[Rfam]
RNA: mir-965 microRNA precursor family
RNA sequence: UAACUGAACGGGAGAAGUUGUACUGCUAUAUGUUAAAAGUAAUGUCAUAAGCGUAUAGCUUUUCCCCUUGGUUA
Numbered sequence: 001u002a003a004c005u006g007a008a009c010g011g012g013a014g015a016a017g018u019u020g021u022a023c024u025g026c027u028a029u030a031u032g033u034u035a036a037a038a039g040u041a042a043u044g045u046c047a048u049a050a051g052c053g054u055a056u057a058g059c060u061u062u063u064c065c066c067c068u069u070g071g072u073u074a
Stems, first nucleotide, its partner, number of pairs: 003072005010066003014062002018058005026051002029049004